[Rfam]
RNA sequence: AGCUUAUAAAGAAAGAUGGAGGGAACUGACCCUGUGAAGUCUUAACAACCUGCUUUUGCAAGGUGUUACAUUCAGCCUUUAAGGAAAGAUAAGCA
Dot-bracket structure: .((((((.....(((((...(((..[[[[)))......)))))((((.(((((....))).))))))...(]]]](((...)))..).)))))).
SAM riboswitch aptamer (S box leader): a 95-nucleotide RNA from Elizabethkingia meningoseptica. About the family: The SAM riboswitch is found upstream of a number of genes which code for proteins involved in methionine or cysteine biosynthesis in Gram-positive bacteria. The SAM riboswitch acts at the level of transcription termination control. The predicted structure consists of a complex stem-loop region followed by a single stem loop terminator region. An alternative and mutually exclusive form involves bases in the 3' segment of helix 1 with those in the 5' region of helix 5 to form a structure termed the anti-terminator form. This entry represents the conserved core of the complex structure involving helices 1-4. The base pairs follow the family's consensus structure, which is taken from published work.